[Rfam]
RNA sequence: GGUUUCCAUUGGUACAAAUCCAAUCACCUCAAUUUGAGAUGAAAAGCAAUUUCCCUUUGGUAGUACAUGGUUGUCCAUUAAGCGGGGAAAUAGUAU
Numbered sequence: 001g002g003u004u005u006c007c008a009u010u011g012g013u014a015c016a017a018a019u020c021c022a023a024u025c026a027c028c029u030c031a032a033u034u035u036g037a038g039a040u041g042a043a044a045a046g047c048a049a050u051u052u053c054c055c056u057u058u059g060g061u062a063g064u065a066c067a068u069g070g071u072u073g074u075c076c077a078u079u080a081a082g083c084g085g086g087g088a089a090a091u092a093g094u095a096u
Stems, first nucleotide, its partner, number of pairs: 009023004052087004057077001059075006
Plastid-rps12 3UTR RNA: a 96-nucleotide sequence from Kingdonia uniflora. Rfam describes the family as follows. Plastid rpl20 is a non-coding RNA (ncRNA) recognised in plastids.